Rfam assigns this 61-nucleotide part of an RNA from Chroococcidiopsis thermalis to the family "Bacterial large subunit ribosomal RNA".
NCBI's taxonomy places the organism under Bacteria, Cyanobacteriota, Cyanophyceae, Chroococcidiopsis, Chroococcidiopsis thermalis.

[Rfam]
RNA sequence: CGUUCUGCGAUAGGGUGAAGCACUAGCGGCAAGCAGGUGUGGACGAAGCAGAAGUGAGAAU
Numbered sequence: 001c002g003u004u005c006u007g008c009g010a011u012a013g014g015g016u017g018a019a020g021c022a023c024u025a026g027c028g029g030c031a032a033g034c035a036g037g038u039g040u041g042g043a044c045g046a047a048g049c050a051g052a053a054g055u056g057a058g059a060a061u
Stems, first nucleotide, its partner, number of pairs: 001056001003053006011046001013044001020040005026034002